RNA: Bacillus sRNA ncr1575
RNA sequence: AAAUAGAAUGAUGAAAGGAAUGAUGGAUGAAUAAUGAUUAACUAAUUUAUAUUUUAAGUUGAAUUUUAUAACUUCAAACUACAAAAUAUAGGGUUAGUCUAUCCAUUUUUAUAAUUCAUUUCAUACUUUAUUUAUCAUGAUUCAAAUGAUUAAUAAGUACUUACUUAAGCGACAGACUAAUCCUUCCGAUUAAAAAUCGGGGGAUUUUUUU
Numbered sequence: 001a002a003a004u005a006g007a008a009u010g011a012u013g014a015a016a017g018g019a020a021u022g023a024u025g026g027a028u029g030a031a032u033a034a035u036g037a038u039u040a041a042c043u044a045a046u047u048u049a050u051a052u053u054u055u056a057a058g059u060u061g062a063a064u065u066u067u068a069u070a071a072c073u074u075c076a077a078a079c080u081a082c083a084a085a086a087u088a089u090a091g092g093g094u095u096a097g098u099c100u101a102u103c104c105a106u107u108u109u110u111a112u113a114a115u116u117c118a119u120u121u122c123a124u125a126c127u128u129u130a131u132u133u134a135u136c137a138u139g140a141u142u143c144a145a146a147u148g149a150u151u152a153a154u155a156a157g158u159a160c161u162u163a164c165u166u167a168a169g170c171g172a173c174a175g176a177c178u179a180a181u182c183c184u185u186c187c188g189a190u191u192a193a194a195a196a197u198c199g200g201g202g203g204a205u206u207u208u209u210u211u
Base pairs, nucleotide, nucleotide: 016110017109018108024105025104026103027102031098032097043096044095045094046093047092048091049089050088051087052086053085054084058079059077060076061075062074063073065071119157120156121155128149129148130147131146132145133144179206180205181204182203183202184201185200186199188197